[Rfam]
A member of the RNA family "Plastid-psbA-1 3UTR RNA" from Musa acuminata, 103 nucleotides long. It scores 99 bits against the family's covariance model. The base pairs follow the family's consensus structure, which was predicted with LocARNA.

RNA sequence: UCGAAGUUUCAUCUACAAAUGGAUAAGAUUUUUGUCUUAGUGUAUACGAAUCGUUGAAACAAAGUAGCAAUACCCCAUAUAAGAUAUGGGGUAUUGCUAUUUU
Number, nucleotide and partner (000 for none) at each position: 001u000002c000003g000004a000005a000006g000007u000008u023009u022010c021011a020012u019013c000014u000015a000016c000017a000018a000019a012020u011021g010022g009023a008024u000025a000026a000027g000028a000029u000030u000031u000032u000033u000034g000035u000036c000037u000038u000039a000040g000041u000042g000043u000044a000045u000046a000047c000048g000049a000050a000051u000052c000053g000054u000055u000056g000057a000058a000059a000060c000061a103062a102063a101064g100065u099066a098067g097068c096069a095070a094071u093072a092073c091074c000075c089076c088077a087078u000079a085080u084081a000082a000083g000084a080085u079086a000087u077088g076089g075090g000091g073092u072093a071094u070095u069096g068097c067098u066099a065100u064101u063102u062103u061